Background
Rfam assigns this 179-nucleotide sequence from Medicago truncatula to the family "MIR2619 microRNA precursor family". It scores 129 bits against the family's covariance model.

RNA sequence: AAAUCACCCCCUAAGUUUUGCAACUGUAGCAGUUUUGGCCCCCAAGGCCAAUUUUUGGUAAAAAAAAAAAAAAAAAAACAUGUGGCACCUCACUUAGGGUGCCACGUCAGCGUAGACCGAAUCAAAAUUGAUUUUGGGGGGCCAAAACUGGCACAGAUGCAAAGCUUAGGGGGUGAUUU
Numbered sequence: 001a002a003a004u005c006a007c008c009c010c011c012u013a014a015g016u017u018u019u020g021c022a023a024c025u026g027u028a029g030c031a032g033u034u035u036u037g038g039c040c041c042c043c044a045a046g047g048c049c050a051a052u053u054u055u056u057g058g059u060a061a062a063a064a065a066a067a068a069a070a071a072a073a074a075a076a077a078a079c080a081u082g083u084g085g086c087a088c089c090u091c092a093c094u095u096a097g098g099g100u101g102c103c104a105c106g107u108c109a110g111c112g113u114a115g116a117c118c119g120a121a122u123c124a125a126a127a128u129u130g131a132u133u134u135u136g137g138g139g140g141g142c143c144a145a146a147a148c149u150g151g152c153a154c155a156g157a158u159g160c161a162a163a164g165c166u167u168a169g170g171g172g173g174u175g176a177u178u179u
Base pairs, nucleotide, nucleotide: 001179002178004176005175006174007173008172012168013167014166015165016164017163018162019161020160021159022158024156025155026154027153030150031149032148033147034146035145036144037143038142039141040140041139042137043136044135045134080107081106083104084103085102086101087100088099089098